[Rfam]
RNA sequence: CCGCAGCGUCUUGGGGGAGUAGUCUGCUAGUUGCUAUAGGUAGCUAGUGCUUAGCGUCAACAUACUUGGUCAACAGACCAUGGCCUAAGCGACCAUCGUAAUGGUUUGACAAGACCCAUGACAUAUACCCUACCCGGGGCGGGAAGGUGUGUAUGUCAUGGUUC
Numbered sequence: 001c002c003g004c005a006g007c008g009u010c011u012u013g014g015g016g017g018a019g020u021a022g023u024c025u026g027c028u029a030g031u032u033g034c035u036a037u038a039g040g041u042a043g044c045u046a047g048u049g050c051u052u053a054g055c056g057u058c059a060a061c062a063u064a065c066u067u068g069g070u071c072a073a074c075a076g077a078c079c080a081u082g083g084c085c086u087a088a089g090c091g092a093c094c095a096u097c098g099u100a101a102u103g104g105u106u107u108g109a110c111a112a113g114a115c116c117c118a119u120g121a122c123a124u125a126u127a128c129c130c131u132a133c134c135c136g137g138g139g140c141g142g143g144a145a146g147g148u149g150u151g152u153a154u155g156u157c158a159u160g161g162u163u164c
Base pairs, nucleotide, nucleotide: 027047028046029045030044031043049090050089051088052087053086054085056084057083058082059081067080068079069078070077071076